[Rfam]
RNA sequence: CUUUGUACCAGAUGCUUUGUUGUAUAAAUACCAUCAAAUAGAGCAUUCUUGUAUAAAGGA
Numbered sequence: 001c002u003u004u005g006u007a008c009c010a011g012a013u014g015c016u017u018u019g020u021u022g023u024a025u026a027a028a029u030a031c032c033a034u035c036a037a038a039u040a041g042a043g044c045a046u047u048c049u050u051g052u053a054u055a056a057a058g059g060a
Stems, first nucleotide, its partner, number of pairs: 002057007010049002012046007020038002023036001
This 60-nucleotide RNA sequence from Monodelphis domestica belongs to the Rfam family "mir-7371 microRNA precursor family". The sequence is in the family's curated seed alignment. Pairs were carried over by alignment from the consensus structure, which was predicted with RNAalifold.